About this RNA: The record is a 360-nucleotide part of an RNA from Candidatus Nanosalinarum sp. J07AB56, which matches "Archaeal small subunit ribosomal RNA" in Rfam. The family is grouped with related families in Rfam's "SSU clan". It is one of the family's seed sequences. Gene Ontology terms of the family: ribosome and structural constituent of ribosome.
RNA sequence: GGCUUAAAGUGUACGUAGCCGGACCUGUAAGUCUGUUGUGAAAUCCACGCGCUUAACGCAGUGGAAGCGCAACGGAUACUACAGGUCUAGGGACCGGAGGACGCCGAGGCUAUUCCAUGGGUAGGAGUGAAAUCCUAAGAUCCAUGGAGGAGCACCAGUGGCGAAAGCGCUCGGCGACUACGGAUCCGACGGUGAGGUACGAAAGCCAGGGGAGCAAAACGGAUUAGAUACCCGUGUAGUCCUGGCCGUCAACAUUGUCCGCUCGACAUGGCCCAACCUUUGUGGUUUGGCUGUGUCCAAGUGAAAACGUUAAGCGGACCGCCUGGGUAGUACGGUCGCAAGGCUGAAACUUAAAGGAAU
Numbered sequence: 001g002g003c004u005u006a007a008a009g010u011g012u013a014c015g016u017a018g019c020c021g022g023a024c025c026u027g028u029a030a031g032u033c034u035g036u037u038g039u040g041a042a043a044u045c046c047a048c049g050c051g052c053u054u055a056a057c058g059c060a061g062u063g064g065a066a067g068c069g070c071a072a073c074g075g076a077u078a079c080u081a082c083a084g085g086u087c088u089a090g091g092g093a094c095c096g097g098a099g100g101a102c103g104c105c106g107a108g109g110c111u112a113u114u115c116c117a118u119g120g121g122u123a124g125g126a127g128u129g130a131a132a133u134c135c136u137a138a139g140a141u142c143c144a145u146g147g148a149g150g151a152g153c154a155c156c157a158g159u160g161g162c163g164a165a166a167g168c169g170c171u172c173g174g175c176g177a178c179u180a181c182g183g184a185u186c187c188g189a190c191g192g193u194g195a196g197g198u199a200c201g202a203a204a205g206c207c208a209g210g211g212g213a214g215c216a217a218a219a220c221g222g223a224u225u226a227g228a229u230a231c232c233c234g235u236g237u238a239g240u241c242c243u244g245g246c247c248g249u250c251a252a253c254a255u256u257g258u259c260c261g262c263u264c265g266a267c268a269u270g271g272c273c274c275a276a277c278c279u280u281u282g283u284g285g286u287u288u289g290g291c292u293g294u295g296u297c298c299a300a301g302u303g304a305a306a307a308c309g310u311u312a313a314g315c316g317g318a319c320c321g322c323c324u325g326g327g328u329a330g331u332a333c334g335g336u337c338g339c340a341a342g343g344c345u346g347a348a349a350c351u352u353a354a355a356g357g358a359a360u
Base pairs, nucleotide, nucleotide: 001323002322003321009320011200012199013198014197016194018193019192020191022087023086024085025084026083027082028081030080031079032076033075034074035073036072037071038070039069040068045064046063047062048061049059050058051057091187092186093185094183095182096181098179099178102176103175104174105173106172107171108170109153110152113149114148115147116146117145118144119143120142124135125134126133161168162167205246206245207244208243209242210241214240215239219235220234221233222232257319258318259317260316261315262314265297266296267295268294269293270292271291272290273289275287276286277285278284301308302307325352326351327350334345335344336343337342